[Rfam]
RNA sequence: CAAGCACCUAAACCCGAGAACUGCUGUUUGUUGUAGCAGCAUUUUAAACAGAGGUGCAAGCGGAUCUCGUUGCCUUUGGGGGAUGAGGCUGUGCCCCUCAAAGUAAAUUGGGAGGUUCUACACUC
Numbered sequence: 001c002a003a004g005c006a007c008c009u010a011a012a013c014c015c016g017a018g019a020a021c022u023g024c025u026g027u028u029u030g031u032u033g034u035a036g037c038a039g040c041a042u043u044u045u046a047a048a049c050a051g052a053g054g055u056g057c058a059a060g061c062g063g064a065u066c067u068c069g070u071u072g073c074c075u076u077u078g079g080g081g082g083a084u085g086a087g088g089c090u091g092u093g094c095c096c097c098u099c100a101a102a103g104u105a106a107a108u109u110g111g112g113a114g115g116u117u118c119u120a121c122a123c124u125c
Stems, first nucleotide, its partner, number of pairs: 004057006019044002022041007062118007074103005079097004